This 49-nucleotide sequence from Actinidia chinensis belongs to the Rfam family "Small nucleolar RNA U49". Its Rfam clan is "SNORD49 clan". It is annotated as a C/D-box small nucleolar RNA. For this family Rfam cites "Multiple snoRNA gene clusters from Arabidopsis" (Brown et al., RNA, 2001). Taxonomically the source falls in Actinidia chinensis (Eukaryota, Streptophyta, Tracheophyta, Actinidiaceae).
RNA sequence: UCUCUUCCUUAGAUAGGAAGUGUCGUAUGACACUUCAAAUAGAAGCUGC
Numbered sequence: 001u002c003u004c005u006u007c008c009u010u011a012g013a014u015a016g017g018a019a020g021u022g023u024c025g026u027a028u029g030a031c032a033c034u035u036c037a038a039a040u041a042g043a044a045g046c047u048g049c
Stems, first nucleotide, its partner, number of pairs: 002045001017036006